[Rfam]
RNA sequence: ACACGAAGAAAGGAGGUGAUCCGGAAGUGGUUUCUUUUCGGAUGCGUGAGGUGACUGCGGGCUGAGGCCCGUCGUCGCACUCUGUGCAAUGUCGGCAGGCCUCCUGCCGCAAUCCCAAGCAGUCACCGACCCGCGGGUUCGCCGGCACAUCCGGCCGGCCUCUCCGUCAGGAGAGCCAGAGCCCGCGGGUUUCCGCUU
Numbered sequence: 001a002c003a004c005g006a007a008g009a010a011a012g013g014a015g016g017u018g019a020u021c022c023g024g025a026a027g028u029g030g031u032u033u034c035u036u037u038u039c040g041g042a043u044g045c046g047u048g049a050g051g052u053g054a055c056u057g058c059g060g061g062c063u064g065a066g067g068c069c070c071g072u073c074g075u076c077g078c079a080c081u082c083u084g085u086g087c088a089a090u091g092u093c094g095g096c097a098g099g100c101c102u103c104c105u106g107c108c109g110c111a112a113u114c115c116c117a118a119g120c121a122g123u124c125a126c127c128g129a130c131c132c133g134c135g136g137g138u139u140c141g142c143c144g145g146c147a148c149a150u151c152c153g154g155c156c157g158g159c160c161u162c163u164c165c166g167u168c169a170g171g172a173g174a175g176c177c178a179g180a181g182c183c184c185g186c187g188g189g190u191u192u193c194c195g196c197u198u
Base pairs, nucleotide, nucleotide: 016058017057018056020054060108061107062106064103065102067100068099069098072095073094074093128191129190130189131188132187133186134185135184136183137182138181139180141159142158143157144156145155146154
Source information
This 198-nucleotide sequence from Streptomyces lavendofoliae belongs to the Rfam family "Actinobacteria sRNA Ms_IGR-5". It scores 76 bits against the family's covariance model. Rfam classes the family as a small RNA.